[Rfam]
RNA sequence: AGCGCCUUUAAUUCAGUCCCGUGAGACUGGCAAGGUAACGUGAAUCGAGGUUCGCGACUCUAGGAAGGUAUCCGUAUGACUAUACGGAAGUCUUUUCAUGUGCGCAGCCGUCAUCUUCUUCAUGUGUGGAUUCCACUCCUUGCCUGUUUCAGGCAAGGAGUUUUUUGU
Numbered sequence: 001a002g003c004g005c006c007u008u009u010a011a012u013u014c015a016g017u018c019c020c021g022u023g024a025g026a027c028u029g030g031c032a033a034g035g036u037a038a039c040g041u042g043a044a045u046c047g048a049g050g051u052u053c054g055c056g057a058c059u060c061u062a063g064g065a066a067g068g069u070a071u072c073c074g075u076a077u078g079a080c081u082a083u084a085c086g087g088a089a090g091u092c093u094u095u096u097c098a099u100g101u102g103c104g105c106a107g108c109c110g111u112c113a114u115c116u117u118c119u120u121c122a123u124g125u126g127u128g129g130a131u132u133c134c135a136c137u138c139c140u141u142g143c144c145u146g147u148u149u150c151a152g153g154c155a156a157g158g159a160g161u162u163u164u165u166u167g168u
Base pairs, nucleotide, nucleotide: 004036005035006034007033008032013030014029015028016027017026018025064095065094066093067092068091069090071088072087073086074085075084076083077082135161136160137159138158139157140156141155142154143153144152145151146150